[Rfam]
RNA sequence: GGUCCGAUGCCACGUCGACGGUAGCCAACGAGCAUUGACCGGCGAUGCUAUGAUUGGACCAAAAUCAAAAAAACUAUUUUUGUUUCGCAUUUAGAUAGGAAUCUGUGGAUCGAUUCAAUGCUGUUCGUCCAUGGUGCCGGUUUGUGCGAUUACAGUU
Numbered sequence: 001g002g003u004c005c006g007a008u009g010c011c012a013c014g015u016c017g018a019c020g021g022u023a024g025c026c027a028a029c030g031a032g033c034a035u036u037g038a039c040c041g042g043c044g045a046u047g048c049u050a051u052g053a054u055u056g057g058a059c060c061a062a063a064a065u066c067a068a069a070a071a072a073a074c075u076a077u078u079u080u081u082g083u084u085u086c087g088c089a090u091u092u093a094g095a096u097a098g099g100a101a102u103c104u105g106u107g108g109a110u111c112g113a114u115u116c117a118a119u120g121c122u123g124u125u126c127g128u129c130c131a132u133g134g135u136g137c138c139g140g141u142u143u144g145u146g147c148g149a150u151u152a153c154a155g156u157u
Base pairs, nucleotide, nucleotide: 002059003058004057005056006055007054008053009051013047014046015045016044017043020040021039022038024033025032085149086148087147088146089145098138099137103134104133105132107130108129109128110127
RNA: Small nucleolar RNA snoR2/U65